[Rfam]
RNA: Plant signal recognition particle RNA
RNA sequence: GCCUGGCUUGGUAACGCGAGCCUUUAACCCACGUGGGGGCAUCAAUUUGUUGGGACGCUGGCAUAUUCUAUCCGGGUUGGGCCUCCGUCGGCUUAUUACCGGCCCGCCCGUUCCAAGUCGAGAGUGUGAGGCAUGUGGCUUGGGCGAAGGCUCUUGGGUCACGUGUUUCCUAGAGGAUGGGGGCAAUGCGUCAGGCUGGUUUCACAGAGCAGCGACUACCCCCCGCUCCUGACAGUGGAAGGAUAACGGGUCAGUGUCUCUCGGACCCGAUAAAGGCCCGAUGGAUUUGUCCAAGCCGAACCAUCUUUUUU
Numbered sequence: 001g002c003c004u005g006g007c008u009u010g011g012u013a014a015c016g017c018g019a020g021c022c023u024u025u026a027a028c029c030c031a032c033g034u035g036g037g038g039g040c041a042u043c044a045a046u047u048u049g050u051u052g053g054g055a056c057g058c059u060g061g062c063a064u065a066u067u068c069u070a071u072c073c074g075g076g077u078u079g080g081g082c083c084u085c086c087g088u089c090g091g092c093u094u095a096u097u098a099c100c101g102g103c104c105c106g107c108c109c110g111u112u113c114c115a116a117g118u119c120g121a122g123a124g125u126g127u128g129a130g131g132c133a134u135g136u137g138g139c140u141u142g143g144g145c146g147a148a149g150g151c152u153c154u155u156g157g158g159u160c161a162c163g164u165g166u167u168u169c170c171u172a173g174a175g176g177a178u179g180g181g182g183g184c185a186a187u188g189c190g191u192c193a194g195g196c197u198g199g200u201u202u203c204a205c206a207g208a209g210c211a212g213c214g215a216c217u218a219c220c221c222c223c224c225g226c227u228c229c230u231g232a233c234a235g236u237g238g239a240a241g242g243a244u245a246a247c248g249g250g251u252c253a254g255u256g257u258c259u260c261u262c263g264g265a266c267c268c269g270a271u272a273a274a275g276g277c278c279c280g281a282u283g284g285a286u287u288u289g290u291c292c293a294a295g296c297c298g299a300a301c302c303a304u305c306u307u308u309u310u311u
Stems, first nucleotide, its partner, number of pairs: 001040003005022006028037003044310002049305001051303003056298002058295002061290003065286002068284005075278004079268003082264002087260001090258002093256001099254001101252006108242002111240005117233004122228004128169015143152003170175001179222004189214003196207003